This 102-nucleotide sequence from Juglans regia belongs to the Rfam family "Small nucleolar RNA snoR109".
The base pairs follow the family's consensus structure, which was predicted with WAR.
On this family, see Marker et al., Curr Biol 2002: "Experimental RNomics: identification of 140 candidates for small non-messenger RNAs in the plant Arabidopsis thaliana".
Rfam classes the family as an H/ACA-box small nucleolar RNA.
RNA sequence: CGGCUGUAGCCAUAUCAAAUAUCUCAGAGAAGUUAACUGGCCAGUUUUUGUGAGAUCUUUCGAUCUCCGUCAACUAUUCUGCUUACCAAACUUCUCAUAUUA
Numbered sequence: 001c002g003g004c005u006g007u008a009g010c011c012a013u014a015u016c017a018a019a020u021a022u023c024u025c026a027g028a029g030a031a032g033u034u035a036a037c038u039g040g041c042c043a044g045u046u047u048u049u050g051u052g053a054g055a056u057c058u059u060u061c062g063a064u065c066u067c068c069g070u071c072a073a074c075u076a077u078u079c080u081g082c083u084u085a086c087c088a089a090a091c092u093u094c095u096c097a098u099a100u101u102a
Stems, first nucleotide, its partner, number of pairs: 027096008039083003044078001046076001048073003